[Rfam]
RNA sequence: UCGCCGGUCGCAGGAGAGAGGGGCCCCAGGCCUCCGCCGAAGGCGCAAACUCCCAUAAUCGCUCAGGUACCCAUUACUGCGAAUCACAG
Numbered sequence: 001u002c003g004c005c006g007g008u009c010g011c012a013g014g015a016g017a018g019a020g021g022g023g024c025c026c027c028a029g030g031c032c033u034c035c036g037c038c039g040a041a042g043g044c045g046c047a048a049a050c051u052c053c054c055a056u057a058a059u060c061g062c063u064c065a066g067g068u069a070c071c072c073a074u075u076a077c078u079g080c081g082a083a084u085c086a087c088a089g
Stems, first nucleotide, its partner, number of pairs: 006084001008082006020034004036068003039064002043062003049056001
About this RNA: Rfam assigns this 89-nucleotide RNA sequence from Halopseudomonas bauzanensis to the family "Glycine riboswitch aptamer". Pairs were carried over by alignment from the consensus structure.